[Rfam]
Rfam assigns this 120-nucleotide sequence from Streptomyces qinglanensis to the family "Streptomyces-metH RNA". By type it is a small RNA. Pairs were carried over by alignment from the consensus structure, which is taken from published work. A search with the family's covariance model found it, with a score of 85 bits.
RNA sequence: GUGUCCGAUGGUCGGAAUGUCGACCUGCGCUCUUGCGUCCGCCCGCUACGCUGACCGGGUGCGCUGCCUCACCGGCGCGCAAAGCCGACAGCCGUCGCAACCCAGGGAGCCUCUUCCAUG
Numbered sequence: 001g002u003g004u005c006c007g008a009u010g011g012u013c014g015g016a017a018u019g020u021c022g023a024c025c026u027g028c029g030c031u032c033u034u035g036c037g038u039c040c041g042c043c044c045g046c047u048a049c050g051c052u053g054a055c056c057g058g059g060u061g062c063g064c065u066g067c068c069u070c071a072c073c074g075g076c077g078c079g080c081a082a083a084g085c086c087g088a089c090a091g092c093c094g095u096c097g098c099a100a101c102c103c104a105g106g107g108a109g110c111c112u113c114u115u116c117c118a119u120g
Stems, first nucleotide, its partner, number of pairs: 060081004065077004084098002087096003